[Rfam]
RNA sequence: UUUGGUGCUAUGAUUGUAAAAAUUCUUCAUCCUGAAUUGUCAAUGGCAUGACAAACUCUUUUUACCUAGAUAAUAUGAGCAAUA
Numbered sequence: 001u002u003u004g005g006u007g008c009u010a011u012g013a014u015u016g017u018a019a020a021a022a023u024u025c026u027u028c029a030u031c032c033u034g035a036a037u038u039g040u041c042a043a044u045g046g047c048a049u050g051a052c053a054a055a056c057u058c059u060u061u062u063u064a065c066c067u068a069g070a071u072a073a074u075a076u077g078a079g080c081a082a083u084a
Stems, first nucleotide, its partner, number of pairs: 003084002006081002
RNA: Small nucleolar RNA snoR8a